[Rfam]
RNA sequence: UGCCACAAUGAUGACAGUUUAUUUGCUACUCUUGACUGCGAGAAUGACGAGAAUGUUAACCACCAUUAUCCUAACUGAGGCA
Numbered sequence: 001u002g003c004c005a006c007a008a009u010g011a012u013g014a015c016a017g018u019u020u021a022u023u024u025g026c027u028a029c030u031c032u033u034g035a036c037u038g039c040g041a042g043a044a045u046g047a048c049g050a051g052a053a054u055g056u057u058a059a060c061c062a063c064c065a066u067u068a069u070c071c072u073a074a075c076u077g078a079g080g081c082a
Base pairs, nucleotide, nucleotide: 001082002081003080004079